Description: A member of the RNA family "Lysine riboswitch aptamer" from Brevibacillus centrosporus, 188 nucleotides long.
[Rfam]
RNA sequence: GAGUGAGGUAGAGGCGCGAAAACCAAGAGUACCUCCCUGAGAUCGGGAAUCUGUGAAGGGUAUGGAAAAGGGGAAUUCGCCGAAGUGUGGAGAUGGACCCGCCUCUCUCCAUGCUGGGUCUGCAUUGAACAAAUGCAGGACUGUCAUCUGCGCAAUCACCAGUUGCCAGAUGGAGAGCUAUCUCACGG
Dot-bracket structure: .....((((((....(((((..((.......(((((((..................)))).).))......))..)))))...((((((((((.(........).))))))))))((.((((((((.....)))))))).)).(((((((................)))))))....)))))).....